[Rfam]
RNA sequence: UUCGCGGUGAACGACCAGUUCAGCUGCUCGGCGGCCAGCGCGCCGUCACCGAGGAAGUCCCCGUCGGCGACCACGCCGAGCGCGGUCUCGUUGCCGUACUUGCCUUCUCCGGUCUUGGUCACCCGGCCGUGCACGAUCAGCACGACCUGGUCGACCGCCGACCCGGCCUCCGCGAGGGUCUCGCCCGCGGACAGCUCGCGCUGCACGAAGCGGUUGGCCAGCGCGCUGAGCACCUGGCUGUCGUCGAACCCGCGCAGCGCGGGGAUCUCGCCCAGCUCGGCGGGGAUCACCCGGACCUGCGAGCCGGUGGCGACGAACUCGAUGCGCCCGUCACCCACGGAGUAGGUCAGUCGGCGGUUGACCCGGUAGGCGCCGCCCUUGAUGUCCUCCCAGGGCAGCGCGUGCAGCAGCCAGCGCGGGCUGAUGCCCUGCAUCUGGGGCACGGACUUGGUGGUGGUGGCCAGGUUCCGCGCCGCGGCGGUGCCGAGACUCUGCGGUGACUGUCCCG
Numbered sequence: 001u002u003c004g005c006g007g008u009g010a011a012c013g014a015c016c017a018g019u020u021c022a023g024c025u026g027c028u029c030g031g032c033g034g035c036c037a038g039c040g041c042g043c044c045g046u047c048a049c050c051g052a053g054g055a056a057g058u059c060c061c062c063g064u065c066g067g068c069g070a071c072c073a074c075g076c077c078g079a080g081c082g083c084g085g086u087c088u089c090g091u092u093g094c095c096g097u098a099c100u101u102g103c104c105u106u107c108u109c110c111g112g113u114c115u116u117g118g119u120c121a122c123c124c125g126g127c128c129g130u131g132c133a134c135g136a137u138c139a140g141c142a143c144g145a146c147c148u149g150g151u152c153g154a155c156c157g158c159c160g161a162c163c164c165g166g167c168c169u170c171c172g173c174g175a176g177g178g179u180c181u182c183g184c185c186c187g188c189g190g191a192c193a194g195c196u197c198g199c200g201c202u203g204c205a206c207g208a209a210g211c212g213g214u215u216g217g218c219c220a221g222c223g224c225g226c227u228g229a230g231c232a233c234c235u236g237g238c239u240g241u242c243g244u245c246g247a248a249c250c251c252g253c254g255c256a257g258c259g260c261g262g263g264g265a266u267c268u269c270g271c272c273c274a275g276c277u278c279g280g281c282g283g284g285g286a287u288c289a290c291c292c293g294g295a296c297c298u299g300c301g302a303g304c305c306g307g308u309g310g311c312g313a314c315g316a317a318c319u320c321g322a323u324g325c326g327c328c329c330g331u332c333a334c335c336c337a338c339g340g341a342g343u344a345g346g347u348c349a350g351u352c353g354g355c356g357g358u359u360g361a362c363c364c365g366g367u368a369g370g371c372g373c374c375g376c377c378c379u380u381g382a383u384g385u386c387c388u389c390c391c392a393g394g395g396c397a398g399c400g401c402g403u404g405c406a407g408c409a410g411c412c413a414g415c416g417c418g419g420g421c422u423g424a425u426g427c428c429c430u431g432c433a434u435c436u437g438g439g440g441c442a443c444g445g446a447c448u449u450g451g452u453g454g455u456g457g458u459g460g461c462c463a464g465g466u467u468c469c470g471c472g473c474c475g476c477g478g479c480g481g482u483g484c485c486g487a488g489a490c491u492c493u494g495c496g497g498u499g500a501c502u503g504u505c506c507c508g
Stems, first nucleotide, its partner, number of pairs: 006390002009387001011385002020382002023328001026325002028322004035315001044312007053305002055298001057233002060230001062225003065111003075103001077102004082097005117222001119220001122217002127212001130209001135206001138203003143200002149196002155190004160185001162177001166173002235295001240290002243287003249283002253279002256277003259271003329342001331340002353377005362370002391431007399423002403418003407415001437476001439474002443470004447465006477507002480502003484499001488495001

Shown here is a 508-nucleotide RNA sequence from Kutzneria viridogrisea, a member of the family "Saccharopolyspora sRNA 350". Its family is annotated with regulation of secondary metabolite biosynthetic process in the Gene Ontology. Rfam classes the family as an antisense RNA. The family's consensus secondary structure was predicted with RNAfold. It scores 149 bits against the family's covariance model.